[Rfam]
RNA sequence: GCACUGGUGUAGCUCAGUGGUUACUUCUGUGAUCCUUGCCAAAUCGACUUCGCUCGGUUUCCUCUCGGAGACCGAAGAUCGAACCACGGGCACUGUCCAGUGUUUUG
Numbered sequence: 001g002c003a004c005u006g007g008u009g010u011a012g013c014u015c016a017g018u019g020g021u022u023a024c025u026u027c028u029g030u031g032a033u034c035c036u037u038g039c040c041a042a043a044u045c046g047a048c049u050u051c052g053c054u055c056g057g058u059u060u061c062c063u064c065u066c067g068g069a070g071a072c073c074g075a076a077g078a079u080c081g082a083a084c085c086a087c088g089g090g091c092a093c094u095g096u097c098c099a100g101u102g103u104u105u106u107g
Stems, first nucleotide, its partner, number of pairs: 002102006012091004017087006

This 107-nucleotide RNA from Danionella cerebrum belongs to the Rfam family "Vault RNA".
Rfam classes the family as a non-coding RNA gene.